[Rfam]
RNA sequence: AACGUGCUCCGGGGUCGGUGAGAAUCCGAACCGGCGGUGACAGUCCGCGAGCUGCGGCGCUUCGGCGGUGCGGCUGAUCCGGUGAAAUUCCGGAACCGACGGUGAUGCGUGGGAAACCACGCGAGUCCGGAUGAGAGGCAGCACGCG
Dot-bracket structure: ..((((((((.....(((.......)))...((((((.....[[))))..(((..................)))...(((((.......)))))]])).(((........................))).......)).))))))..
A member of the RNA family "FMN riboswitch aptamer (RFN element)" from Microbacterium sp. C448, 147 nucleotides long. Rfam links the family to the GO term FMN binding. The match comes from Rfam's covariance-model search (80 bits). On this family, see Vitreschak et al., Nucleic Acids Res 2002: "Regulation of riboflavin biosynthesis and transport genes in bacteria by transcriptional and translational attenuation". The base pairs follow the family's consensus structure, which is taken from published work.